[Rfam]
RNA sequence: AAAGGAAAGGAGCAAUAACAAAAUUCUUGUUCGAUCAAGAGGGCGUUAUUGCUCCUUUCC
Numbered sequence: 001a002a003a004g005g006a007a008a009g010g011a012g013c014a015a016u017a018a019c020a021a022a023a024u025u026c027u028u029g030u031u032c033g034a035u036c037a038a039g040a041g042g043g044c045g046u047u048a049u050u051g052c053u054c055c056u057u058u059c060c
Stems, first nucleotide, its partner, number of pairs: 006058012024041006
Shown here is a 60-nucleotide RNA, a member of the family "Plastid-psbA-4 3UTR RNA".
Rfam describes the family as follows. Plastid psbA-4 is a non-coding RNA (ncRNA) present in plastids.
Rfam classes the family as a cis-regulatory element.
The sequence is in the family's curated seed alignment.
The base pairs follow the family's consensus structure, which was predicted with LocARNA.
For this family Rfam cites "Retrograde signaling in plants: A critical review focusing on the GUN pathway and beyond" (Richter et al., Plant Commun, 2023).